[Rfam]
Small nucleolar RNA SNORA32: a 117-nucleotide sequence from Sphenodon punctatus. It is annotated as an H/ACA-box small nucleolar RNA. ACA32 is a member of the H/ACA class of snoRNA that guide the sites of modification of uridines to pseudouridines. A search with the family's covariance model found it, with a score of 60 bits. Rfam links the family to the GO terms nucleolus and RNA processing. Pairs were carried over by alignment from the consensus structure, which was predicted with RNAfold.
RNA sequence: UGGUCAUUACCAAAGCUACUAGGAAAUGCCGUUUCUGGUUUGCUGUGGACAUGACCAUAGAGUAACUCCAUCAGGCUUCACAUUGCUGCUUCAGCGCUAAAGCUGUUGGAAACACAA
Numbered sequence: 001u002g003g004u005c006a007u008u009a010c011c012a013a014a015g016c017u018a019c020u021a022g023g024a025a026a027u028g029c030c031g032u033u034u035c036u037g038g039u040u041u042g043c044u045g046u047g048g049a050c051a052u053g054a055c056c057a058u059a060g061a062g063u064a065a066c067u068c069c070a071u072c073a074g075g076c077u078u079c080a081c082a083u084u085g086c087u088g089c090u091u092c093a094g095c096g097c098u099a100a101a102g103c104u105g106u107u108g109g110a111a112a113c114a115c116a117a
Base pairs, nucleotide, nucleotide: 003055004054005053006052007051010048011047012046028043029042031040067110068109069108070107074103077100084096085095086094
Dot-bracket structure: ..(((((..(((...............((.(........).))..)))..)))))...........((((...(..(......(((.......)))...)..)...)))).......